The record is a 93-nucleotide RNA, which matches "GP20-a RNA" in Rfam. Rfam's curators put it in the seed alignment. The family's RNA type in Rfam is cis-regulatory element.
RNA sequence: AUCACCCUACCAUGCCGGGACAUAACUGCAUGGGCGCCGCGCCCGCGGGGUGGCCGCGGAUAUAUAAGCCAAAUCUACGGCGGCAGGAGGUAA
Number, nucleotide and partner (000 for none) at each position: 001a000002u000003c000004a000005c019006c018007c017008u000009a000010c033011c032012a031013u030014g029015c000016c000017g007018g006019g005020a000021c000022a000023u000024a000025a000026c000027u000028g000029c014030a013031u012032g011033g010034g000035c082036g081037c080038c079039g078040c000041g000042c000043c059044c058045g057046c056047g055048g000049g000050g000051u000052g000053g000054c000055c047056g046057c045058g044059g043060a000061u000062a000063u000064a000065u000066a000067a000068g000069c000070c000071a000072a000073a000074u000075c000076u000077a000078c039079g038080g037081c036082g035083g000084c000085a000086g000087g000088a000089g000090g000091u000092a000093a000